This 95-nucleotide RNA from Bacillus sp. Y1 belongs to the Rfam family "Guanidine-I riboswitch aptamer". The organism belongs to Bacillus, within Bacteria. On this family, see Battaglia et al., RNA 2017: "Structural basis for guanidine sensing by the ykkC family of riboswitches".
RNA sequence: AAAAUUGCUCUCUAGGGUUCCGGUUGAGAAACGUCUGGUCCGAGAGAGAGCGUACAGUAUAUCUGUAGACACGGAGGGACAAAAGCCCGGGAGAA
Number, nucleotide and partner (000 for none) at each position: 001a000002a000003a000004a000005u000006u000007g051008c050009u049010c048011u047012c046013u000014a000015g041016g040017g000018u000019u000020c038021c037022g035023g032024u031025u030026g000027a000028g000029a000030a025031a024032c023033g000034u000035c022036u000037g021038g020039u000040c016041c015042g000043a000044g000045a000046g012047a011048g010049a009050g008051c007052g000053u067054a066055c065056a064057g063058u000059a000060u000061a000062u000063c057064u056065g055066u054067a053068g000069a000070c090071a000072c093073g000074g000075a000076g088077g087078g086079a000080c000081a000082a000083a000084a000085g000086c078087c077088c076089g000090g070091g000092a000093g072094a000095a000